[Rfam]
RNA sequence: GAAGACCCUGUUGAGCUUGACUCUAGUCUGGCACUGUGAAGAGACAUGAGAGGUGUAGAAUAAGUGGGAGGCUUCGGCCGCCGGUGAAAUACCACUACUCUUAUCGUUUUUUCACUUACCCGGUGAGGCGGGGAGACGAGCCCCGAGCGGGCUCUCGCUUCUGGUGUCAAGCGCCCGGCAUCGCCGGGCGUGACCCGCUCCGGGGACAGUGGCAGGUGGGGAGUUUGACUGGGGGGUACAUCUGUCAAACGGUAACGCAGGUGUCCUAAAAGCGAAGCUCAGGGAGGACAGAAACCUCCCGUGGAGCAGAAGGGCAGAAGCUCGCUUGAUCUUGAUUUUCAGUAUGAAUACAGACCGUGAAAGCGGGGCCUCACGCGAUCCUUCUGACUUUUUGGGUUUUAAGCAGGAGGUGUCAGAAAAGUUACCACAGGGAUAACUGGCUUGUGGCGUGCGAGCGCGUUCAUAGCGGCGUCGGCUUUUGAUCCCUCGAUGUCGGCUCUUCCUAUCAUUGUGAAGCAGAAUUCACCAAGCGUUGGAUUGUUCACCCACUAAUAGGGAGCGUGAGCUGGGUUUAGACCGUCGUGAGACAGGUUAGUU
Dot-bracket structure: ......((((.(((((((.((((...((((.((..(((((((((((((((((..........(((((..((......))............))))).))))))).))))))))))...(((((.....((((.....(((((.......)))))................(((((((.......)))))))..))))..))))).....)).))))....))))..((((....))).)((((((...........))))))..((.....(((.(((((.((((((.......))))))...))((......))....))))))....(((..((((.......))))..))).(((....))).))............((((((..(((.........))))))))).........)))))..))))))........(.(.(.(.((.((....((.......))...)))).)...)).)..........(((((((((((..(...(((((......))))).....).(((.(.....).))).....)))))..)..)))).).....(((((((....))).))))....
Numbered sequence: 001g002a003a004g005a006c007c008c009u010g011u012u013g014a015g016c017u018u019g020a021c022u023c024u025a026g027u028c029u030g031g032c033a034c035u036g037u038g039a040a041g042a043g044a045c046a047u048g049a050g051a052g053g054u055g056u057a058g059a060a061u062a063a064g065u066g067g068g069a070g071g072c073u074u075c076g077g078c079c080g081c082c083g084g085u086g087a088a089a090u091a092c093c094a095c096u097a098c099u100c101u102u103a104u105c106g107u108u109u110u111u112u113c114a115c116u117u118a119c120c121c122g123g124u125g126a127g128g129c130g131g132g133g134a135g136a137c138g139a140g141c142c143c144c145g146a147g148c149g150g151g152c153u154c155u156c157g158c159u160u161c162u163g164g165u166g167u168c169a170a171g172c173g174c175c176c177g178g179c180a181u182c183g184c185c186g187g188g189c190g191u192g193a194c195c196c197g198c199u200c201c202g203g204g205g206a207c208a209g210u211g212g213c214a215g216g217u218g219g220g221g222a223g224u225u226u227g228a229c230u231g232g233g234g235g236g237u238a239c240a241u242c243u244g245u246c247a248a249a250c251g252g253u254a255a256c257g258c259a260g261g262u263g264u265c266c267u268a269a270a271a272g273c274g275a276a277g278c279u280c281a282g283g284g285a286g287g288a289c290a291g292a293a294a295c296c297u298c299c300c301g302u303g304g305a306g307c308a309g310a311a312g313g314g315c316a317g318a319a320g321c322u323c324g325c326u327u328g329a330u331c332u333u334g335a336u337u338u339u340c341a342g343u344a345u346g347a348a349u350a351c352a353g354a355c356c357g358u359g360a361a362a363g364c365g366g367g368g369c370c371u372c373a374c375g376c377g378a379u380c381c382u383u384c385u386g387a388c389u390u391u392u393u394g395g396g397u398u399u400u401a402a403g404c405a406g407g408a409g410g411u412g413u414c415a416g417a418a419a420a421g422u423u424a425c426c427a428c429a430g431g432g433a434u435a436a437c438u439g440g441c442u443u444g445u446g447g448c449g450u451g452c453g454a455g456c457g458c459g460u461u462c463a464u465a466g467c468g469g470c471g472u473c474g475g476c477u478u479u480u481g482a483u484c485c486c487u488c489g490a491u492g493u494c495g496g497c498u499c500u501u502c503c504u505a506u507c508a509u510u511g512u513g514a515a516g517c518a519g520a521a522u523u524c525a526c527c528a529a530g531c532g533u534u535g536g537a538u539u540g541u542u543c544a545c546c547c548a549c550u551a552a553u554a555g556g557g558a559g560c561g562u563g564a565g566c567u568g569g570g571u572u573u574a575g576a577c578c579g580u581c582g583u584g585a586g587a588c589a590g591g592u593u594a595g596u597u
Stems, first nucleotide, its partner, number of pairs: 007431004012427002014423005020224004027216004032211002036115010046104007063096005070079002119204005129197004138154005171191007227239001228237003240262006265368002272325003276322003279305002282300006306315002330354003335349004356365003381409006389403003440483001442481001444480001446476001448474002451472002457467002494569001495567004499561001500558005507532001511526005534548003538544001575593004579588003
A member of the RNA family "Eukaryotic large subunit ribosomal RNA" from Perca fluviatilis, 597 nucleotides of a longer RNA.
The match comes from Rfam's covariance-model search (2657 bits).
Taxonomically the source falls in Perca (Eukaryota, Euteleostomi, Teleostei, Eupercaria).